[Rfam]
RNA sequence: AACAGAGUAGGAAAUGAAGCGUUAAGUGCUGUAGGGAUGGGAUGUUGCCCUCAGACGAAGAAUUACUUAGGUAAUUUGCGGUUUUGUUUCUGCAUUCGCUGCA
Dot-bracket structure: ..(((....(((((((((((((...((.(((.((((...[[[[[...)))))))))...(((((((....)))))))))).)))))))))).]]]]].)))..
RNA: THF (Tetrahydrofolate) riboswitch aptamer
Organism: Carnobacterium iners